RNA sequence: GAUUGAGGUAGAGGCGCGAUAUUUAUUAGGUUACAGCAGAGUGAAAGCAACGAUGAAGCUAUAAUGAAGGAAAUGUCGCCGAAGUGUAUAAGUGGGCUUAAGCUUAUAUGCUGGGGUUGUAAUUAAUAAUUGCAGCACUGUCUUAGUAAACGUUAUUCCUUUUUACUAAGUUGAGCUAUCUCGAGU
Numbered sequence: 001g002a003u004u005g006a007g008g009u010a011g012a013g014g015c016g017c018g019a020u021a022u023u024u025a026u027u028a029g030g031u032u033a034c035a036g037c038a039g040a041g042u043g044a045a046a047g048c049a050a051c052g053a054u055g056a057a058g059c060u061a062u063a064a065u066g067a068a069g070g071a072a073a074u075g076u077c078g079c080c081g082a083a084g085u086g087u088a089u090a091a092g093u094g095g096g097c098u099u100a101a102g103c104u105u106a107u108a109u110g111c112u113g114g115g116g117u118u119g120u121a122a123u124u125a126a127u128a129a130u131u132g133c134a135g136c137a138c139u140g141u142c143u144u145a146g147u148a149a150a151c152g153u154u155a156u157u158c159c160u161u162u163u164u165a166c167u168a169a170g171u172u173g174a175g176c177u178a179u180c181u182c183g184a185g186u
Base pairs, nucleotide, nucleotide: 006181007180008179009178010177011176016079017078018077019076020075021074022073023072024071031064032063033062035060036059037058083112084111085110086109087108088107089106090105091104092103093102113139114138116136117135118134119133120132121131122130123129142170143169144168145167146166147165148164149163150162

The record is a 186-nucleotide RNA sequence from Lysinibacillus sp. BF-4, which matches "Lysine riboswitch aptamer" in Rfam. Rfam's curators write: Riboswitches are metabolite binding domains within certain messenger RNAs that serve as precision sensors for their corresponding targets. Allosteric rearrangement of mRNA structure is mediated by ligand binding, and this results in modulation of gene expression. This family includes riboswitches that sense lysine in a number of genes involved in lysine metabolism, including lysC.